Shown here is an 83-nucleotide RNA from Trichobilharzia regenti, a member of the family "Selenocysteine transfer RNA". NCBI's taxonomy places the organism under Eukaryota, Opisthokonta, Eumetazoa, Platyhelminthes, Trichobilharzia. It scores 55 bits against the family's covariance model.
[Rfam]
RNA sequence: GCUAGAAUGACCCUCGGUGGUCCCAGGUGCAGGCCUCAAACCUGUAGCCGAUUGGCGGAGUGGUUCGAUUCCGUCUUCCUGGC
Numbered sequence: 001g002c003u004a005g006a007a008u009g010a011c012c013c014u015c016g017g018u019g020g021u022c023c024c025a026g027g028u029g030c031a032g033g034c035c036u037c038a039a040a041c042c043u044g045u046a047g048c049c050g051a052u053u054g055g056c057g058g059a060g061u062g063g064u065u066c067g068a069u070u071c072c073g074u075c076u077u078c079c080u081g082g083c
Stems, first nucleotide, its partner, number of pairs: 001083005007077001009075001012027003016023002028046006048058003060074004